[Rfam]
RNA: Purine riboswitch aptamer
Organism: Fervidibacillus halotolerans
RNA sequence: AUGAAAACAACAUAGCUUACUCGUAUAAUCUUGGGAAUAUGGCCCAAAAGUUUCUACCAAGCUACCGUAAAUGGCUUGACUACGAGGUUAUGUGUUGCAUAA
Number, nucleotide and partner (000 for none) at each position: 001a000002u000003g000004a000005a000006a000007a000008c000009a000010a000011c000012a000013u000014a000015g000016c000017u000018u000019a000020c086021u085022c084023g083024u082025a081026u000027a000028a000029u049030c000031u047032u046033g045034g044035g043036a000037a000038u000039a000040u000041g000042g000043c035044c034045c033046a032047a031048a000049a029050g000051u000052u000053u000054c000055u000056a000057c000058c078059a077060a076061g075062c074063u073064a072065c000066c000067g000068u000069a000070a000071a000072u064073g063074g062075c061076u060077u059078g058079a000080c000081u025082a024083c023084g022085a021086g020087g000088u000089u000090a000091u000092g000093u000094g000095u000096u000097g000098c000099a000100u000101a000102a000